Source information: Shown here is a 104-nucleotide RNA sequence from Mycolicibacterium grossiae, a member of the family "mraW RNA". Rfam 15.1 lists 851 matches to the family in 821 species. The base pairs follow the family's consensus structure, which is taken from published work.
[Rfam]
RNA sequence: GACCAUCCCCGUCCCGUGGUCUCUGUCCGAGACGGCGAACCUGGCGUCGGGGAAGUACGUCAGGGUCGGUUCGGACAGAGGCCACGGGACGGCGAUGUUCUUCG
Numbered sequence: 001g002a003c004c005a006u007c008c009c010c011g012u013c014c015c016g017u018g019g020u021c022u023c024u025g026u027c028c029g030a031g032a033c034g035g036c037g038a039a040c041c042u043g044g045c046g047u048c049g050g051g052g053a054a055g056u057a058c059g060u061c062a063g064g065g066u067c068g069g070u071u072c073g074g075a076c077a078g079a080g081g082c083c084a085c086g087g088g089a090c091g092g093c094g095a096u097g098u099u100c101u102u103c104g
Stems, first nucleotide, its partner, number of pairs: 010091007018083002021080011033068002038066001040064008
Description
A search with the family's covariance model found it, with a score of 50 bits.